Cyano-1 RNA: a 69-nucleotide RNA sequence from Coleofasciculus sp. LEGE 07092.
[Rfam]
RNA sequence: GUGUGUGUGAGGAAAAAAGAAGAAGCGCUUGGAGUCGAAACACGGCAAGACGCCCAAGCGCUUUUUCCA
Numbered sequence: 001g002u003g004u005g006u007g008u009g010a011g012g013a014a015a016a017a018a019g020a021a022g023a024a025g026c027g028c029u030u031g032g033a034g035u036c037g038a039a040a041c042a043c044g045g046c047a048a049g050a051c052g053c054c055c056a057a058g059c060g061c062u063u064u065u066u067c068c069a
Stems, first nucleotide, its partner, number of pairs: 019067005026060002031055002034051003
The match comes from Rfam's covariance-model search (48 bits). Pairs were carried over by alignment from the consensus structure, which is taken from published work.